The family of this 216-nucleotide part of an RNA from Trichoderma asperellum is "Ascomycota telomerase RNA". It is annotated as a non-coding RNA gene. The base pairs follow the family's consensus structure. Its family is annotated with telomerase activity, telomere maintenance via telomerase and telomerase catalytic core complex in the Gene Ontology. NCBI's taxonomy places the organism under Eukaryota, sordariomyceta, Sordariomycetes, Hypocreales, Trichoderma asperellum. On this family, see Qi et al., Nucleic Acids Res 2013: "The common ancestral core of vertebrate and fungal telomerase RNAs". Clan: Telomerase clan.
RNA sequence: UCCCCCACAGUUUCCCGACUCUCGUUUUCCGCAAGGAAUGUCUACUGCAGGCCCCCCUCCCCAGACUUGGUCAUCCGCAAUAUGCCGCUUCCAAACCUGCUCCAGGAUCUUGUUGAAUGCUGCAGCUGGAUCUAUUGCGGCCCGUCUCUGCCCGGCACCCAGGCAGCCAAGUCGAGCUGGGGGAACGAGCUUCGGAACUUAACCCUAAGCAUACAU
Numbered sequence: 001u002c003c004c005c006c007a008c009a010g011u012u013u014c015c016c017g018a019c020u021c022u023c024g025u026u027u028u029c030c031g032c033a034a035g036g037a038a039u040g041u042c043u044a045c046u047g048c049a050g051g052c053c054c055c056c057c058u059c060c061c062c063a064g065a066c067u068u069g070g071u072c073a074u075c076c077g078c079a080a081u082a083u084g085c086c087g088c089u090u091c092c093a094a095a096c097c098u099g100c101u102c103c104a105g106g107a108u109c110u111u112g113u114u115g116a117a118u119g120c121u122g123c124a125g126c127u128g129g130a131u132c133u134a135u136u137g138c139g140g141c142c143c144g145u146c147u148c149u150g151c152c153c154g155g156c157a158c159c160c161a162g163g164c165a166g167c168c169a170a171g172u173c174g175a176g177c178u179g180g181g182g183g184a185a186c187g188a189g190c191u192u193c194g195g196a197a198c199u200u201a202a203c204c205c206u207a208a209g210c211a212u213a214c215a216u
Stems, first nucleotide, its partner, number of pairs: 009199003015195004